[Rfam]
RNA: mir-5928 microRNA precursor family
Organism: Haemonchus placei
RNA sequence: GGCCAAAAUUUGAAGUAGAGUAGAUUAGAAGGAUCAUCAGACCCUACCAAACCAUCCUACUUCGAGUUUGUGCCC
Numbered sequence: 001g002g003c004c005a006a007a008a009u010u011u012g013a014a015g016u017a018g019a020g021u022a023g024a025u026u027a028g029a030a031g032g033a034u035c036a037u038c039a040g041a042c043c044c045u046a047c048c049a050a051a052c053c054a055u056c057c058u059a060c061u062u063c064g065a066g067u068u069u070g071u072g073c074c075c
Base pairs, nucleotide, nucleotide: 001074002073003072006069007068008067009066011064012063013062014061015060016059017058018057020055021054023052025050026049028047030045032043034041035040